[Rfam]
RNA sequence: UCGGGCACCGCGCCGAGUCUGGAACCGAGGGCGGGGAAGUCCGAGGCAACGGAACCGGGGAACCACGUUUCCCUGGGGUGAAUCACACGCAAGGCGGGAACCUCCGUGGAGCGUGUGUAGGGCUUCUUUGUGCCCGAACCCGUCAGCUCACCCGGUAGGCGUCGAACAAAGAGGGA
Numbered sequence: 001u002c003g004g005g006c007a008c009c010g011c012g013c014c015g016a017g018u019c020u021g022g023a024a025c026c027g028a029g030g031g032c033g034g035g036g037a038a039g040u041c042c043g044a045g046g047c048a049a050c051g052g053a054a055c056c057g058g059g060g061a062a063c064c065a066c067g068u069u070u071c072c073c074u075g076g077g078g079u080g081a082a083u084c085a086c087a088c089g090c091a092a093g094g095c096g097g098g099a100a101c102c103u104c105c106g107u108g109g110a111g112c113g114u115g116u117g118u119a120g121g122g123c124u125u126c127u128u129u130g131u132g133c134c135c136g137a138a139c140c141c142g143u144c145a146g147c148u149c150a151c152c153c154g155g156u157a158g159g160c161g162u163c164g165a166a167c168a169a170a171g172a173g174g175g176a
Base pairs, nucleotide, nucleotide: 011161012160013159014158018053019052020051054156055155056154057153058152059151064075065074076141077140078139084117085116086115087114088113089112090111120135121134122133123132
The family of this 176-nucleotide RNA sequence from Nocardioides sp. JQ2195 is "c-di-AMP riboswitch aptamer (ydaO/yuaA leader)". The match comes from Rfam's covariance-model search (78 bits).